This 73-nucleotide sequence from Scleropages formosus belongs to the Rfam family "Small nucleolar RNA SNORD19". Rfam links the family to the GO terms nucleolus and RNA processing. The pairing is the family consensus, mapped onto this sequence. The source organism's lineage runs through Eukaryota, Metazoa, Teleostomi, Osteoglossiformes and Scleropages. It scores 37 bits against the family's covariance model. Rfam 15.1 lists 1,431 matches to the family in 609 species.
RNA sequence: GAGAAAUGAGGAAAUCAAAUGAUUCUUGAGUACAAGUGAAGACUUCUAAUCCAACUCUGAUCUCUGGCACCCG
Numbered sequence: 001g002a003g004a005a006a007u008g009a010g011g012a013a014a015u016c017a018a019a020u021g022a023u024u025c026u027u028g029a030g031u032a033c034a035a036g037u038g039a040a041g042a043c044u045u046c047u048a049a050u051c052c053a054a055c056u057c058u059g060a061u062c063u064c065u066g067g068c069a070c071c072c073g
Stems, first nucleotide, its partner, number of pairs: 001064004